[Rfam]
RNA sequence: GACUGGCCUGAAGGUAGUGAGUUAUCUCAAUUGAUUAUUCAGUCAGUUACAGAUUGAACUCCUGGUUCUACUCUUUCCCUCCUUCUCACUACUGCACUUGACUAGCCUUAA
Numbered sequence: 001g002a003c004u005g006g007c008c009u010g011a012a013g014g015u016a017g018u019g020a021g022u023u024a025u026c027u028c029a030a031u032u033g034a035u036u037a038u039u040c041a042g043u044c045a046g047u048u049a050c051a052g053a054u055u056g057a058a059c060u061c062c063u064g065g066u067u068c069u070a071c072u073c074u075u076u077c078c079c080u081c082c083u084u085c086u087c088a089c090u091a092c093u094g095c096a097c098u099u100g101a102c103u104a105g106c107c108u109u110a111a
Base pairs, nucleotide, nucleotide: 001107003105004104005103006102008100010099011098014095015094016090017089018088019087020086021085042072045069046068